[Rfam]
RNA: Group II catalytic intron D1-D4-3
Organism: Thomasclavelia cocleata
RNA sequence: UUGAUAGUGAUGUCAUGGGUGAAGGAAGUGGUGUAACAAAAUCUUCGAGGUUACGAGCAGAAAUCUGAUGAAGUUAAAUGGUGGAUAAGGCUGCAUAAUAAACUAAAGUCCAUAGGGUAAACGUAAAACCAAGACAGUAGAUCAGGAACUUGUUGUGAAGAUAGAAAAAGAU
Numbered sequence: 001u002u003g004a005u006a007g008u009g010a011u012g013u014c015a016u017g018g019g020u021g022a023a024g025g026a027a028g029u030g031g032u033g034u035a036a037c038a039a040a041a042u043c044u045u046c047g048a049g050g051u052u053a054c055g056a057g058c059a060g061a062a063a064u065c066u067g068a069u070g071a072a073g074u075u076a077a078a079u080g081g082u083g084g085a086u087a088a089g090g091c092u093g094c095a096u097a098a099u100a101a102a103c104u105a106a107a108g109u110c111c112a113u114a115g116g117g118u119a120a121a122c123g124u125a126a127a128a129c130c131a132a133g134a135c136a137g138u139a140g141a142u143c144a145g146g147a148a149c150u151u152g153u154u155g156u157g158a159a160g161a162u163a164g165a166a167a168a169a170g171a172u
Base pairs, nucleotide, nucleotide: 002015003014004013005012006011028172029171032168037164042158043157045155047154048151049150050149051148052147064146065145066144067143068142073138074137075136079131080130081129082128083111084110085109086108089104090103092101